[Rfam]
RNA sequence: CCCCUAACUUUUAUUUGUACCAAUUUGGUCCUCUAUGUUUUGCUCCGUUACUAGUUUUAGUCCUUUCUCUUAGUUUCUCUCAAAAAAACGUUAAUAGAAAGGACUAAAACUAGUAACGGAGCAAAACAUAGGGGACCAAAUUGGUACAUAAGUUAACGUUUUUUUGAGAGAAACUAACAGAAAGGACUAAAACUAGUAACAAAGCAAAACAUAGGGGACCAAAUUGAUACAAAUUAUAGUUAGGGGA
Numbered sequence: 001c002c003c004c005u006a007a008c009u010u011u012u013a014u015u016u017g018u019a020c021c022a023a024u025u026u027g028g029u030c031c032u033c034u035a036u037g038u039u040u041u042g043c044u045c046c047g048u049u050a051c052u053a054g055u056u057u058u059a060g061u062c063c064u065u066u067c068u069c070u071u072a073g074u075u076u077c078u079c080u081c082a083a084a085a086a087a088a089c090g091u092u093a094a095u096a097g098a099a100a101g102g103a104c105u106a107a108a109a110c111u112a113g114u115a116a117c118g119g120a121g122c123a124a125a126a127c128a129u130a131g132g133g134g135a136c137c138a139a140a141u142u143g144g145u146a147c148a149u150a151a152g153u154u155a156a157c158g159u160u161u162u163u164u165u166g167a168g169a170g171a172a173a174c175u176a177a178c179a180g181a182a183a184g185g186a187c188u189a190a191a192a193c194u195a196g197u198a199a200c201a202a203a204g205c206a207a208a209a210c211a212u213a214g215g216g217g218a219c220c221a222a223a224u225u226g227a228u229a230c231a232a233a234u235u236a237u238a239g240u241u242a243g244g245g246g247a
Stems, first nucleotide, its partner, number of pairs: 002245007023224003027220003031216013047200001
Dot-bracket structure: .(((((((..............(((.(((.(((((((((((((...(........................................................................................................................................................)...))))))))))))).))).)))..............)))))))..
Rfam assigns this 247-nucleotide sequence from Medicago truncatula to the family "MIR2655 microRNA precursor family".
Pairs were carried over by alignment from the consensus structure, which was predicted with RNAalifold.
The family has 25 seed sequences and 892 matches in Rfam 15.1.
NCBI's taxonomy places the organism under Eukaryota, Tracheophyta, Mesangiospermae, Fabales, Medicago.